[Rfam]
RNA sequence: GUACUUGGAUCUCCAACUUUUUGGAAUGUUCCAAAUUC
Dot-bracket structure: ..(.((((....)))).).((((((....))))))...
Notes: Shown here is a 38-nucleotide RNA sequence from Ampelodesmos mauritanicus, a member of the family "Plastid psbT antisense RNA". The family has 93 seed sequences and 1,866 matches in Rfam 15.1. Pairs were carried over by alignment from the consensus structure, which was predicted with LocARNA. Rfam's curators write: Plastid-psbT-asRNA is an antisense RNA (asRNA) motif reported in Plastids It has been shown that psbT expression is controlled by two antisense RNAs originated from psbN transcription by the nuclear-encoded polymerase (NEP), in which the short antisense RNA hybridizes to psbT CDS, thereby stabilizing psbT transcript while blocking its translation during photooxidative stress. Lineage of the source: Eukaryota > Tracheophyta > Euphyllophyta > Poales > Ampelodesmos. For this family Rfam cites "Retrograde signaling in plants: A critical review focusing on the GUN pathway and beyond" (Richter et al., Plant Commun, 2023).